[Rfam]
A member of the RNA family "mir-130 microRNA precursor family" from Vicugna pacos, 75 nucleotides long.
RNA sequence: GAUUUGGCAGUGCCCUUUUUAAAUUGUCAUGACUGGAGCAGUCAUGACAAUUUAAAAAGGGCACUGCCAAAUGUC
Numbered sequence: 001g002a003u004u005u006g007g008c009a010g011u012g013c014c015c016u017u018u019u020u021a022a023a024u025u026g027u028c029a030u031g032a033c034u035g036g037a038g039c040a041g042u043c044a045u046g047a048c049a050a051u052u053u054a055a056a057a058a059g060g061g062c063a064c065u066g067c068c069a070a071a072u073g074u075c
Stems, first nucleotide, its partner, number of pairs: 001075003005069006012062008022052013

The match comes from Rfam's covariance-model search (42 bits).
The literature on the family includes a 2002 paper in Curr Biol by Lagos-Quintana et al., "Identification of tissue-specific microRNAs from mouse".
The source organism's lineage runs through Eukaryota, Amniota, Eutheria, Camelidae and Vicugna.